Molybdenum/Tungsten riboswitch aptamer (Moco RNA motif): a 124-nucleotide RNA from Thermoanaerobacter brockii.
[Rfam]
RNA sequence: AGGAGAAUAACUCUCCGAGCCUUUAUGUCUAAGGGGCGAAGAGCCCUAUGAGAUAAAGGCCGAUAGGGUAUUGAUGGAAACAUCAAUGCCUCCCGUGUUGGAAAGGAGAGGCAAUGCAUUUGCA
Numbered sequence: 001a002g003g004a005g006a007a008u009a010a011c012u013c014u015c016c017g018a019g020c021c022u023u024u025a026u027g028u029c030u031a032a033g034g035g036g037c038g039a040a041g042a043g044c045c046c047u048a049u050g051a052g053a054u055a056a057a058g059g060c061c062g063a064u065a066g067g068g069u070a071u072u073g074a075u076g077g078a079a080a081c082a083u084c085a086a087u088g089c090c091u092c093c094c095g096u097g098u099u100g101g102a103a104a105g106g107a108g109a110g111g112c113a114a115u116g117c118a119u120u121u122g123c124a
Stems, first nucleotide, its partner, number of pairs: 006115001011110006019060008028051002033047004066091011092101002
The match comes from Rfam's covariance-model search (85 bits). NCBI's taxonomy places the organism under Bacteria, Bacillota, Clostridia, Thermoanaerobacter, Thermoanaerobacter brockii. Rfam links the family to the GO terms molybdenum ion binding, tungstate binding and regulation of gene expression.